[Rfam]
RNA sequence: UGCAAUGGCUGCUGGGAUACACCCUGUGCUCGCUUUGAAUCUCAAACAAGCAAGUGAACACAGCUGGUGGUAUCCAGUGGCCAUUUUGCA
Numbered sequence: 001u002g003c004a005a006u007g008g009c010u011g012c013u014g015g016g017a018u019a020c021a022c023c024c025u026g027u028g029c030u031c032g033c034u035u036u037g038a039a040u041c042u043c044a045a046a047c048a049a050g051c052a053a054g055u056g057a058a059c060a061c062a063g064c065u066g067g068u069g070g071u072a073u074c075c076a077g078u079g080g081c082c083a084u085u086u087u088g089c090a
Stems, first nucleotide, its partner, number of pairs: 008081005015075003019071002021068003024063003028059001030057002
Shown here is a 90-nucleotide sequence from Drosophila busckii, a member of the family "mir-317 microRNA precursor family".
The family has 25 seed sequences and 153 matches in Rfam 15.1.
Taxonomically the source falls in Dorsilopha (Eukaryota, Protostomia, Allotriocarida, Drosophilidae).
It scores 90 bits against the family's covariance model.